[Rfam]
RNA: Histone 3' UTR stem-loop
RNA sequence: CCAACGGCUCUUUUAAGAGCCACCUACGUGACUCAGGAAAAGAGCUU
Numbered sequence: 001c002c003a004a005c006g007g008c009u010c011u012u013u014u015a016a017g018a019g020c021c022a023c024c025u026a027c028g029u030g031a032c033u034c035a036g037g038a039a040a041a042g043a044g045c046u047u
Stems, first nucleotide, its partner, number of pairs: 006021006